[Rfam]
RNA sequence: AACUAAGGAACGCAGACUAAAAACGCCACGUCCUGUGGCAACGUCUGCAUGACCCACAUCCUGUGGG
Numbered sequence: 001a002a003c004u005a006a007g008g009a010a011c012g013c014a015g016a017c018u019a020a021a022a023a024c025g026c027c028a029c030g031u032c033c034u035g036u037g038g039c040a041a042c043g044u045c046u047g048c049a050u051g052a053c054c055c056a057c058a059u060c061c062u063g064u065g066g067g
Stems, first nucleotide, its partner, number of pairs: 012048006025039005053067005
Bacillaceae-1 RNA: a 67-nucleotide RNA sequence from Bacillus sp. NRRL B-14911. The family's consensus secondary structure is taken from published work. Rfam's curators put it in the seed alignment.